[Rfam]
RNA sequence: UCGGUCCCGGUUCACGUCCGGUACAGCAUUUGGGCGACCCGGGUCC
Numbered sequence: 001u002c003g004g005u006c007c008c009g010g011u012u013c014a015c016g017u018c019c020g021g022u023a024c025a026g027c028a029u030u031u032g033g034g035c036g037a038c039c040c041g042g043g044u045c046c
Base pairs, nucleotide, nucleotide: 003046004045007042008041009040010039015036016035017034018033019032020031021030022028
Dot-bracket structure: ..((..((((....((((((((.....).)))))))..))))..))
The record is a 46-nucleotide RNA from Mycolicibacterium smegmatis, which matches "L31-Actinobacteria ribosomal protein leader" in Rfam.
Pairs were carried over by alignment from the consensus structure, which is taken from published work.
The literature on the family includes a 2020 paper in BMC Microbiol by Eckert and Weinberg, "Discovery of 20 novel ribosomal leader candidates in bacteria and archaea".